[Rfam]
Annotation
Rfam assigns this 69-nucleotide RNA from Gorilla gorilla to the family "mir-4429 microRNA precursor family". Rfam's curators put it in the seed alignment.
RNA sequence: AGGGAGAAAAGCUGGGCUGAGAGGCGACUGGUGUCUAAUCUGUCUCUCCAACUCAGACUGCCUGGCCCA
Numbered sequence: 001a002g003g004g005a006g007a008a009a010a011g012c013u014g015g016g017c018u019g020a021g022a023g024g025c026g027a028c029u030g031g032u033g034u035c036u037a038a039u040c041u042g043u044c045u046c047u048c049c050a051a052c053u054c055a056g057a058c059u060g061c062c063u064g065g066c067c068c069a
Stems, first nucleotide, its partner, number of pairs: 002068003010059002012056005019048007026035003